This 172-nucleotide sequence from Hahella chejuensis belongs to the Rfam family "Group II catalytic intron D1-D4-3".
[Rfam]
RNA sequence: UCCAUCGUGAGGUGGAAUCUGAAGGAAGCCGUAGGCAAAGCACUGGCCUGACGAACAGGAAUCGCAUACGAGGCGGCCACACUGGGUAAGGCGGCAAAUACCGUCAAAGCCCGUACUUGCACGGAAGGUGUGGACGUAGAUGCGGCGGGCAUAAGUGUGAAGGUCACGCGUC
Number, nucleotide and partner (000 for none) at each position: 001u016002c015003c014004a013005u012006c011007g000008u000009g000010a000011g006012g005013u004014g003015g002016a001017a000018u000019c000020u000021g000022a000023a000024g000025g000026a000027a000028g172029c000030c170031g169032u168033a000034g000035g164036c163037a000038a000039a000040g158041c157042a156043c155044u154045g000046g150047c149048c148049u147050g146051a000052c000053g000054a000055a000056c000057a000058g000059g000060a000061a000062u145063c144064g143065c142066a141067u140068a000069c000070g000071a000072g000073g137074c136075g135076g000077c133078c132079a131080c130081a129082c128083u127084g112085g111086g110087u109088a000089a000090g105091g104092c103093g102094g000095c000096a000097a000098a000099u000100a000101c000102c093103g092104u091105c090106a000107a000108a000109g087110c086111c085112c084113g000114u000115a000116c000117u000118u000119g000120c000121a000122c000123g000124g000125a000126a000127g083128g082129u081130g080131u079132g078133g077134a000135c075136g074137u073138a000139g000140a067141u066142g065143c064144g063145g062146c050147g049148g048149g047150c046151a000152u000153a000154a044155g043156u042157g041158u040159g000160a000161a000162g000163g036164u035165c000166a000167c000168g032169c031170g030171u000172c028